Background: A member of the RNA family "SAM-I/IV (S-adenosyl methionine) riboswitch aptamer" from Maritimibacter harenae, 103 nucleotides long. On this family, see Weinberg et al., RNA 2008: "The aptamer core of SAM-IV riboswitches mimics the ligand-binding site of SAM-I riboswitches".
[Rfam]
RNA sequence: CACGUGCAUCAAGAGCAGGGCCUUAGCCCUCGCCAACCUGCCCAACCAGGCAAGGUGGUCACCCGAAAGGGGAUGCGGCCGGAGGGCAACGAAAGGGUUUCUC
Numbered sequence: 001c002a003c004g005u006g007c008a009u010c011a012a013g014a015g016c017a018g019g020g021c022c023u024u025a026g027c028c029c030u031c032g033c034c035a036a037c038c039u040g041c042c043c044a045a046c047c048a049g050g051c052a053a054g055g056u057g058g059u060c061a062c063c064c065g066a067a068a069g070g071g072g073a074u075g076c077g078g079c080c081g082g083a084g085g086g087c088a089a090c091g092a093a094a095g096g097g098u099u100u101c102u103c
Stems, first nucleotide, its partner, number of pairs: 006076005015031001017030005032059003037055003040051003044099004078087003